Rfam assigns this 181-nucleotide RNA sequence from Takifugu flavidus to the family "Small nucleolar RNA SNORA23". Taxonomically the source falls in Takifugu (Eukaryota, Craniata, Teleostomi, Osteoglossocephalai). The family has 9 seed sequences and 1,092 matches in Rfam 15.1. The members of this family belong to the H/ACA class of snoRNAs which are thought to guide the sites of modification of uridines to pseudouridines. This family includes human snoRNA ACA23 (SNORA23) and mouse snoMBI-1. ACA23 is predicted to guide the pseudouridylation of residue U3737 and U4331 of 28S rRNA. It is annotated as an H/ACA-box small nucleolar RNA.

RNA sequence: GGUGAUUGGUGUGCACGGUGCCAGUCUGUGUUAUGUGUUGUUGCUGGACUGCGUUUUGCAGACUGGGCAGCAUCACUCACAUCACACUUGCAGCCACAGAACAACAGGAGAUCAUAGUACUGGUCCUUGACGUCUUUAUCGACCCAUCACCUUUGGCCAGCCUCCACUCUCUCCUACAUGC
Numbered sequence: 001g002g003u004g005a006u007u008g009g010u011g012u013g014c015a016c017g018g019u020g021c022c023a024g025u026c027u028g029u030g031u032u033a034u035g036u037g038u039u040g041u042u043g044c045u046g047g048a049c050u051g052c053g054u055u056u057u058g059c060a061g062a063c064u065g066g067g068c069a070g071c072a073u074c075a076c077u078c079a080c081a082u083c084a085c086a087c088u089u090g091c092a093g094c095c096a097c098a099g100a101a102c103a104a105c106a107g108g109a110g111a112u113c114a115u116a117g118u119a120c121u122g123g124u125c126c127u128u129g130a131c132g133u134c135u136u137u138a139u140c141g142a143c144c145c146a147u148c149a150c151c152u153u154u155g156g157c158c159a160g161c162c163u164c165c166a167c168u169c170u171c172u173c174c175u176a177c178a179u180g181c
Base pairs, nucleotide, nucleotide: 013091014090015089029081030080031079035077036075037074039072040071041070043068044067045065046064047063050060051059052058107174108173109172110171111170120160121159122158123157124156125155128146129145132143133142134141